[Rfam]
Rfam assigns this 124-nucleotide RNA from Frischella perrara to the family "TPP riboswitch aptamer (THI element)". Taxonomically the source falls in Frischella (Bacteria, Pseudomonadota, Orbales, Orbaceae). Pairs were carried over by alignment from the consensus structure, which is taken from published work.
RNA sequence: UUGUUCUCAACGGGGAGCUAAUAACGAAAGUCAGCUGAGAGUUGUAAUUCAUUAGAAAUGGAAAACAUGACCCGUCGAACCUGAACCGGCUAAUACCGGCGGAGGGAUUGAGCUUAUCAAAGAU
Numbered sequence: 001u002u003g004u005u006c007u008c009a010a011c012g013g014g015g016a017g018c019u020a021a022u023a024a025c026g027a028a029a030g031u032c033a034g035c036u037g038a039g040a041g042u043u044g045u046a047a048u049u050c051a052u053u054a055g056a057a058a059u060g061g062a063a064a065a066c067a068u069g070a071c072c073c074g075u076c077g078a079a080c081c082u083g084a085a086c087c088g089g090c091u092a093a094u095a096c097c098g099g100c101g102g103a104g105g106g107a108u109u110g111a112g113c114u115u116a117u118c119a120a121a122g123a124u
Stems, first nucleotide, its partner, number of pairs: 006112005011074004016068001017035003021031001043067003080105003086099004
Gene Ontology term of the family: thiamine pyrophosphate binding.